[Rfam]
Nucleotides: 052
Stems, first nucleotide, its partner, number of pairs: 006048007014040003018036004022031001
Number, partner (000 for none) and nucleotide at each position: 001000u002000u003000c004000g005000u006048a007047g008046c009045a010044u011043a012042a013000a014040u015039a016038u017000g018036u019035c020034c021033c022031a023000a024000g025000c026000u027000u028000a029000g030000u031022u032000u033021g034020g035019g036018a037000c038016a039015u040014a041000c042012u043011u044010a045009u046008g047007c048006u049000a050000a051000a052000a

The family of this 52-nucleotide RNA sequence from Homo sapiens is "mir-1302 microRNA precursor family".
Rfam links the family to the GO terms RISC complex and miRNA-mediated post-transcriptional gene silencing.
The family has 24 seed sequences and 16,160 matches in Rfam 15.1.